[Rfam]
RNA: FMN riboswitch aptamer (RFN element)
Organism: Lentilactobacillus buchneri
RNA sequence: GUUUAUCUUCAGGGCAGGGUGUGAUUCCCGACCGGCGGUGAUAGUCCGCGACUCACGAGUGAUCGUGCUGAGCUGGUGAAAUUCCAGUGCCGACAGUAAAGUCUGGUAUGUAGAAGAUUAAA
Numbered sequence: 001g002u003u004u005a006u007c008u009u010c011a012g013g014g015c016a017g018g019g020u021g022u023g024a025u026u027c028c029c030g031a032c033c034g035g036c037g038g039u040g041a042u043a044g045u046c047c048g049c050g051a052c053u054c055a056c057g058a059g060u061g062a063u064c065g066u067g068c069u070g071a072g073c074u075g076g077u078g079a080a081a082u083u084c085c086a087g088u089g090c091c092g093a094c095a096g097u098a099a100a101g102u103c104u105g106g107u108a109u110g111u112a113g114a115a116g117a118u119u120a121a122a
Stems, first nucleotide, its partner, number of pairs: 003120001005118006017029003031102002033092002035049004044090002053067001072088005094105003